The family of this 133-nucleotide RNA sequence from Salpingoeca rosetta is "U4 spliceosomal RNA". It is annotated as a spliceosomal small nuclear RNA. Taxonomically the source falls in Salpingoeca (Eukaryota, Opisthokonta, Choanoflagellata, Craspedida). A search with the family's covariance model found it, with a score of 85 bits. Rfam describes the family as follows. U4 small nuclear RNA (U4 snRNA) is a component of the major U2-dependent spliceosome. A reference for the family is Zwieb (1997), "The uRNA database", Nucleic Acids Res. The family is grouped with related families in Rfam's "U4 clan".
RNA sequence: AUCUUUGCGCAGAGGCAAGACGGCGCGCAGUGAGGUGCAAACCGAGCGGCUGUUUUUGCUGAUUGAAAACUUUCAGUUCCAAUACCCCGGGCUGGCUUCAUUGCUUGACCCAAUAUUUGGAAACCGAAAGGUU
Numbered sequence: 001a002u003c004u005u006u007g008c009g010c011a012g013a014g015g016c017a018a019g020a021c022g023g024c025g026c027g028c029a030g031u032g033a034g035g036u037g038c039a040a041a042c043c044g045a046g047c048g049g050c051u052g053u054u055u056u057u058g059c060u061g062a063u064u065g066a067a068a069a070c071u072u073u074c075a076g077u078u079c080c081a082a083u084a085c086c087c088c089g090g091g092c093u094g095g096c097u098u099c100a101u102u103g104c105u106u107g108a109c110c111c112a113a114u115a116u117u118u119g120g121a122a123a124c125c126g127a128a129a130g131g132u133u
Stems, first nucleotide, its partner, number of pairs: 020053005026048003034043003089111003092107001094105003126133002